[Rfam]
RNA sequence: GGAUCGGGAGGCUGCCUUCGGGACGGUGGCCAUGAAUUGAUCCGAACGCGCUGUCUCGUAUGGGCAAGGUGCCGGGGCCCGGCGGCAACCUUG
Numbered sequence: 001g002g003a004u005c006g007g008g009a010g011g012c013u014g015c016c017u018u019c020g021g022g023a024c025g026g027u028g029g030c031c032a033u034g035a036a037u038u039g040a041u042c043c044g045a046a047c048g049c050g051c052u053g054u055c056u057c058g059u060a061u062g063g064g065c066a067a068g069g070u071g072c073c074g075g076g077g078c079c080c081g082g083c084g085g086c087a088a089c090c091u092u093g
Stems, first nucleotide, its partner, number of pairs: 001043005010031007065093005070087005

Description:
A member of the RNA family "Rhodo-rpoB RNA" from Rhodobacterales bacterium Y4I, 93 nucleotides long. Lineage of the source: Bacteria > Pseudomonadati > Pseudomonadota > Alphaproteobacteria > Rhodobacterales. The base pairs follow the family's consensus structure, which is taken from published work. Rfam classes the family as a cis-regulatory element.